Shown here is a 94-nucleotide RNA sequence from Lederbergia citrea, a member of the family "Glycine riboswitch aptamer".
Lineage of the source: Bacteria > Bacillota > Caryophanales > Bacillaceae > Lederbergia.
It scores 69 bits against the family's covariance model.
Pairs were carried over by alignment from the consensus structure.
Rfam describes the family as follows. This family represents the bacterial glycine riboswitch.
[Rfam]
RNA sequence: AUGAUGGCAAGGGGAGAGACUGCGAAAAUUACAGCGCCGAAGGAGCAAGCAACAAAGUUGUGAAUCUCUCAGGCAAAAAGACCCUUGUUUGACG
Numbered sequence: 001a002u003g004a005u006g007g008c009a010a011g012g013g014g015a016g017a018g019a020c021u022g023c024g025a026a027a028a029u030u031a032c033a034g035c036g037c038c039g040a041a042g043g044a045g046c047a048a049g050c051a052a053c054a055a056a057g058u059u060g061u062g063a064a065u066c067u068c069u070c071a072g073g074c075a076a077a078a079a080g081a082c083c084c085u086u087g088u089u090u091g092a093c094g
Stems, first nucleotide, its partner, number of pairs: 006089008020034003036074003039070002043068003049061002
Dot-bracket structure: .....((((((((......(((.........))).(((((..(((...((.........))....))))).))).......)))))))).....